A member of the RNA family "Nuclear RNase P" from Nylanderia fulva, 310 nucleotides long. The base pairs follow the family's consensus structure, which is taken from published work. Rfam classes the family as a ribozyme. The literature on the family includes a 1998 paper in Annu Rev Biochem by Frank and Pace, "Ribonuclease P: unity and diversity in a tRNA processing ribozyme". It scores 133 bits against the family's covariance model.
RNA sequence: GGCAGUCAUAAUCUAAUGGAGGGGACAUACAAACGGAGCAUAUAUAUUGCUAUAUUUAGUCCCGGGAAGGUCUGAGAAAAGAUCAUUGAACGUUCUAGACGGGCGGUAUCGCAAUGAUACGUACGAGAACCAGAAAUAGCUUUACGUUUUCCAAAAGCCUGGGACGCUUUUUUUAACAGCAGAGGCGACUGGAAACGAAAAGUUGGAAUCUCGUAUGAUCCGCUUUUUCAGUAUAAUCCAUUAGGCAGAUAUUCAUACCUGGUACUCCAGGUAUUUAUAUCUGUAACUCAAUUCAGACUAAUAUCUUGCU
Numbered sequence: 001g002g003c004a005g006u007c008a009u010a011a012u013c014u015a016a017u018g019g020a021g022g023g024g025a026c027a028u029a030c031a032a033a034c035g036g037a038g039c040a041u042a043u044a045u046a047u048u049g050c051u052a053u054a055u056u057u058a059g060u061c062c063c064g065g066g067a068a069g070g071u072c073u074g075a076g077a078a079a080a081g082a083u084c085a086u087u088g089a090a091c092g093u094u095c096u097a098g099a100c101g102g103g104c105g106g107u108a109u110c111g112c113a114a115u116g117a118u119a120c121g122u123a124c125g126a127g128a129a130c131c132a133g134a135a136a137u138a139g140c141u142u143u144a145c146g147u148u149u150u151c152c153a154a155a156a157g158c159c160u161g162g163g164a165c166g167c168u169u170u171u172u173u174u175a176a177c178a179g180c181a182g183a184g185g186c187g188a189c190u191g192g193a194a195a196c197g198a199a200a201a202g203u204u205g206g207a208a209u210c211u212c213g214u215a216u217g218a219u220c221c222g223c224u225u226u227u228u229c230a231g232u233a234u235a236a237u238c239c240a241u242u243a244g245g246c247a248g249a250u251a252u253u254c255a256u257a258c259c260u261g262g263u264a265c266u267c268c269a270g271g272u273a274u275u276u277a278u279a280u281c282u283g284u285a286a287c288u289c290a291a292u293u294c295a296g297a298c299u300a301a302u303a304u305c306u307u308g309c310u
Stems, first nucleotide, its partner, number of pairs: 001310004008304003013244007022063005037051004072296005081220004091105005106120005121216007141202003245284007